Overview:
Shown here is a 68-nucleotide sequence from Chiloscyllium punctatum, a member of the family "Small nucleolar RNA SNORD2". On this family, see Zhou et al., Gene 2004: "Identification of a novel box C/D snoRNA from mouse nucleolar cDNA library". Lineage of the source: Eukaryota > Metazoa > Galeomorphii > Galeoidea > Chiloscyllium.

[Rfam]
RNA sequence: GAGUGAAAUGAUGUUUUACCAUCUUUCGGGACUGAUAUAAUGAUGAGAAACCUCUUUACUGAUCACUC
Numbered sequence: 001g002a003g004u005g006a007a008a009u010g011a012u013g014u015u016u017u018a019c020c021a022u023c024u025u026u027c028g029g030g031a032c033u034g035a036u037a038u039a040a041u042g043a044u045g046a047g048a049a050a051c052c053u054c055u056u057u058a059c060u061g062a063u064c065a066c067u068c
Base pairs, nucleotide, nucleotide: 001068002067003066004065005064006063